[Rfam]
Source information
Enterococcus sRNA A1: a 221-nucleotide RNA from Staphylococcus simulans. The match comes from Rfam's covariance-model search (212 bits). The base pairs follow the family's consensus structure, which was predicted with RNAfold. NCBI's taxonomy places the organism under Bacteria, Bacilli, Caryophanales, Staphylococcaceae, Staphylococcus.
RNA sequence: GUCCGAACGUGUGCUGAGACCGCAAUCGACCUUCAUCGAUUUUUUAUUUUAAAUUCAAAGAAACGGCUUGAGAUAUUCCGAGCAGUUACAAAAAUUAAUUUGUGUUGAAUAUUGCUACUACAUUUUUAAAAGUGAUGUAGAUUUAUAGCCCAUAACUUUUUUGAAUUUCAUCGACGAUACGUCGUCGAAGGAAAAAUAAAUAGACCGUACGAAAGAAAAAA
Number, nucleotide and partner (000 for none) at each position: 001g000002u000003c000004c000005g000006a000007a208008c207009g206010u000011g205012u204013g000014c000015u000016g000017a000018g000019a000020c000021c000022g043023c000024a041025a040026u039027c038028g037029a036030c000031c000032u000033u000034c000035a000036u029037c028038g027039a026040u025041u024042u000043u022044u000045u000046a000047u000048u000049u000050u000051a000052a000053a000054u000055u000056c000057a000058a000059a000060g079061a000062a077063a076064c000065g074066g000067c072068u000069u000070g000071a000072g067073a000074u065075a000076u063077u062078c000079c060080g000081a000082g121083c000084a119085g118086u117087u000088a000089c000090a000091a000092a000093a000094a000095u108096u107097a106098a105099u104100u000101u000102g000103u000104g099105u098106u097107g096108a095109a000110u000111a000112u000113u000114g000115c000116u000117a086118c085119u084120a000121c082122a000123u000124u000125u000126u164127u163128a162129a159130a158131a157132g156133u155134g151135a000136u000137g149138u148139a000140g000141a000142u000143u000144u000145a000146u000147a000148g138149c137150c000151c134152a000153u000154a000155a133156c132157u131158u130159u129160u000161u000162u128163g127164a126165a000166u000167u000168u000169c000170a000171u188172c187173g186174a185175c184176g183177a000178u000179a000180c000181g000182u000183c176184g175185u174186c173187g172188a171189a000190g000191g000192a000193a000194a000195a000196a000197u000198a000199a000200a000201u000202a000203g000204a012205c011206c009207g008208u007209a000210c000211g000212a000213a000214a000215g000216a000217a000218a000219a000220a000221a000